RNA sequence: UAAAUGGACCCAAAGGCAGUAUUUGGUAUUUCCAAAUAAAUUAAAUUAUAAGGGAAUAAAAUUAGAAUUGACAUUUA
Numbered sequence: 001u002a003a004a005u006g007g008a009c010c011c012a013a014a015g016g017c018a019g020u021a022u023u024u025g026g027u028a029u030u031u032c033c034a035a036a037u038a039a040a041u042u043a044a045a046u047u048a049u050a051a052g053g054g055a056a057u058a059a060a061a062u063u064a065g066a067a068u069u070g071a072c073a074u075u076u077a
Stems, first nucleotide, its partner, number of pairs: 001077006010026005027058007
RNA: Mitochondrion-encoded tmRNA